[Rfam]
Nucleotides: 068
Base pairs, nucleotide, nucleotide: 004064006062007061008060009059011057013055014054015053016052019049020048021047022046023045025043026042027041
Number, partner (000 for none) and nucleotide at each position: 001000u002000g003000a004064g005000a006062u007061a008060c009059c010000c011057u012000a013055a014054c015053a016052a017000u018000u019049g020048c021047a022046c023045u024000g025043a026042c027041c028000u029000g030000u031000u032000u033000c034000a035000a036000a037000a038000u039000u040000u041027g042026g043025u044000a045023a046022g047021u048020g049019c050000u051000u052016u053015u054014g055013u056000u057011g058000c059009g060008g061007u062006a063000g064004u065000u066000g067000u068000a

This 68-nucleotide RNA from Electrophorus electricus belongs to the Rfam family "miR-430 microRNA precursor family".
A search with the family's covariance model found it, with a score of 49 bits.
Rfam 15.1 lists 24,817 matches to the family in 105 species.